Shown here is a 72-nucleotide RNA from Ornithorhynchus anatinus, a member of the family "mir-133 microRNA precursor family".
Lineage of the source: Eukaryota > Sarcopterygii > Tetrapoda > Monotremata > Ornithorhynchus.
mir-133 was first experimentally characterised in mouse and homologues have since been discovered in several other species. The mature sequence is excised from the 3' arm of the hairpin.
The family's consensus secondary structure was predicted with PFOLD.
The sequence is in the family's curated seed alignment.
A reference for the family is Lagos-Quintana et al. (2002), "Identification of tissue-specific microRNAs from mouse", Curr Biol.

[Rfam]
RNA sequence: CUGCUGGGGCUGGUCAAAAGGAACCAGAUCGCCUCUCCACCUGAUUUGGUCCCCUUCAACCGGCUGCAGCGG
Number, nucleotide and partner (000 for none) at each position: 001c000002u000003g070004c069005u068006g067007g000008g065009g064010c063011u062012g061013g060014u059015c000016a000017a056018a055019a000020g052021g051022a050023a000024c049025c048026a047027g046028a045029u044030c043031g000032c000033c000034u000035c000036u000037c000038c000039a000040c000041c000042u000043g030044a029045u028046u027047u026048g025049g024050u022051c021052c020053c000054c000055u018056u017057c000058a000059a014060c013061c012062g011063g010064c009065u008066g000067c006068a005069g004070c003071g000072g000
Gene Ontology terms of the family: miRNA-mediated post-transcriptional gene silencing and RISC complex.